[Rfam]
RNA sequence: GGUGGAGAGUUCCAAAGGGAUCGCAUUGAUCUAAUUCUUGUAGAUGUUUACACUUGCAAGCUUUGCAUGCAAUUCCUGGAUUCAGAUGUGAUUCAGUGGUUCACUUAUUGGAUCAUGCGAUCCCUUAGGAACUUUCCAU
Numbered sequence: 001g002g003u004g005g006a007g008a009g010u011u012c013c014a015a016a017g018g019g020a021u022c023g024c025a026u027u028g029a030u031c032u033a034a035u036u037c038u039u040g041u042a043g044a045u046g047u048u049u050a051c052a053c054u055u056g057c058a059a060g061c062u063u064u065g066c067a068u069g070c071a072a073u074u075c076c077u078g079g080a081u082u083c084a085g086a087u088g089u090g091a092u093u094c095a096g097u098g099g100u101u102c103a104c105u106u107a108u109u110g111g112a113u114c115a116u117g118c119g120a121u122c123c124c125u126u127a128g129g130a131a132c133u134u135u136c137c138a139u
Stems, first nucleotide, its partner, number of pairs: 002139005008133006015126007023118004028114005036107001
The family of this 139-nucleotide RNA sequence from Glycine max is "mir-393 microRNA precursor family". On this family, see Kruszka et al., J Plant Physiol 2012: "Role of microRNAs and other sRNAs of plants in their changing environments". The organism belongs to Glycine subgen. Soja, within Eukaryota.